[Rfam]
A member of the RNA family "tRNA" from Aspergillus nidulans, 72 nucleotides long. The sequence is in the family's curated seed alignment. On this family, see Hou, Trends Biochem Sci 1993: "The tertiary structure of tRNA and the development of the genetic code". It is annotated as a transfer RNA. Lineage of the source: Eukaryota > Pezizomycotina > Eurotiales > Aspergillus > Aspergillus subgen. Nidulantes.
RNA sequence: CAGGUUAGAGCCAGGUGGUUAGGCGUCUUGUUUGGGUCAAGAAAUUGUUAUGUUCGAAUCAUAAUAACCUGA
Numbered sequence: 001c002a003g004g005u006u007a008g009a010g011c012c013a014g015g016u017g018g019u020u021a022g023g024c025g026u027c028u029u030g031u032u033u034g035g036g037u038c039a040a041g042a043a044a045u046u047g048u049u050a051u052g053u054u055c056g057a058a059u060c061a062u063a064a065u066a067a068c069c070u071g072a
Stems, first nucleotide, its partner, number of pairs: 001071007010024003026042005048064005